[Rfam]
RNA sequence: GCACCUCAGUACAACCCAGUCGAUUCUGUUUGACGCGGGUCUCAGCGGUGCCACAGAAACUCAUCGUGAAUCCAGACGGGCCUCCUCUUCCCGUGGAGACCGUCUCUACGACUUUGACACAACC
Numbered sequence: 001g002c003a004c005c006u007c008a009g010u011a012c013a014a015c016c017c018a019g020u021c022g023a024u025u026c027u028g029u030u031u032g033a034c035g036c037g038g039g040u041c042u043c044a045g046c047g048g049u050g051c052c053a054c055a056g057a058a059a060c061u062c063a064u065c066g067u068g069a070a071u072c073c074a075g076a077c078g079g080g081c082c083u084c085c086u087c088u089u090c091c092c093g094u095g096g097a098g099a100c101c102g103u104c105u106c107u108a109c110g111a112c113u114u115u116g117a118c119a120c121a122a123c124c
Stems, first nucleotide, its partner, number of pairs: 001051005014040004021035002061117003066112001074105006081098001084096002

Rfam assigns this 124-nucleotide RNA sequence from Oryzias melastigma to the family "Small nucleolar RNA SNORA55".
A search with the family's covariance model found it, with a score of 45 bits.
Rfam describes the family as follows. ACA55 is a member of the H/ACA class of snoRNA that guide the sites of modification of uridines to pseudouridines.
Gene Ontology terms of the family: RNA processing and nucleolus.